Rfam assigns this 91-nucleotide RNA from Megalops atlanticus to the family "let-7 microRNA precursor family".
Rfam describes the family as follows. This family represents the microRNAs (miRNA) let-7 and mir-98. let-7 was identified from a study of developmental timing in C. elegans, and was later shown to be part of a much larger class of non-coding RNAs termed miRNAs.
The source organism's lineage runs through Eukaryota, Vertebrata, Gnathostomata, Actinopteri and Megalops.
Its family is annotated with RISC complex and miRNA-mediated post-transcriptional gene silencing in the Gene Ontology.
[Rfam]
RNA sequence: CUGGGGUGAGGUAGGAAGUUGUGUUGUUGUUGGGGAUUAAGAUAGUGCUCCCCCUGCUGAAGAUAACUAUACAACUUACUGCCUUCCACAG
Numbered sequence: 001c002u003g004g005g006g007u008g009a010g011g012u013a014g015g016a017a018g019u020u021g022u023g024u025u026g027u028u029g030u031u032g033g034g035g036a037u038u039a040a041g042a043u044a045g046u047g048c049u050c051c052c053c054c055u056g057c058u059g060a061a062g063a064u065a066a067c068u069a070u071a072c073a074a075c076u077u078a079c080u081g082c083c084u085u086c087c088a089c090a091g
Base pairs, nucleotide, nucleotide: 001091002090003089005087006086008085009084010083011082012081013080014079016077017076018075019074020073021072022071023070024069026067027066032053033052034051035050055062
A reference for the family is Rougvie (2001), "Control of developmental timing in animals", Nat Rev Genet.
Pairs were carried over by alignment from the consensus structure, which was predicted with RNAalifold.